[Rfam]
RNA sequence: CCACUGAGGUUGCGAGACUUCGGGAGACUAUCAGAAGUCAGCAGCGGGCAUACUAAGGCUGCUCGAUCCAGUCGAAGGCC
Numbered sequence: 001c002c003a004c005u006g007a008g009g010u011u012g013c014g015a016g017a018c019u020u021c022g023g024g025a026g027a028c029u030a031u032c033a034g035a036a037g038u039c040a041g042c043a044g045c046g047g048g049c050a051u052a053c054u055a056a057g058g059c060u061g062c063u064c065g066a067u068c069c070a071g072u073c074g075a076a077g078g079c080c
Stems, first nucleotide, its partner, number of pairs: 002024001004023008039044001047080003057073005
Description:
Shown here is an 80-nucleotide RNA sequence from a Pseudomonadota bacterium, a member of the family "Group II catalytic intron D1-D4-1". The source organism's lineage runs through Bacteria, Pseudomonadati and Pseudomonadota. A search with the family's covariance model found it, with a score of 42 bits. Gene Ontology term of the family: Group II intron splicing.